[Rfam]
RNA sequence: UUUGGCCGUCGCAACUGGCGCUUAGGUGGAAUAACCACCGGGGAGCGGCGAGCGUCGUACGGUCGCGCGCCUGGGCAUUCUUC
Numbered sequence: 001u002u003u004g005g006c007c008g009u010c011g012c013a014a015c016u017g018g019c020g021c022u023u024a025g026g027u028g029g030a031a032u033a034a035c036c037a038c039c040g041g042g043g044a045g046c047g048g049c050g051a052g053c054g055u056c057g058u059a060c061g062g063u064c065g066c067g068c069g070c071c072u073g074g075g076c077a078u079u080c081u082u083c
Stems, first nucleotide, its partner, number of pairs: 003054002007050006015042002017071005026038004062076003

The record is an 83-nucleotide RNA sequence from Solirubrobacter ginsenosidimutans, which matches "ZMP/ZTP riboswitch aptamer (pfl RNA motif)" in Rfam. NCBI's taxonomy places the organism under Bacteria, Bacillati, Actinomycetota, Solirubrobacterales, Solirubrobacter.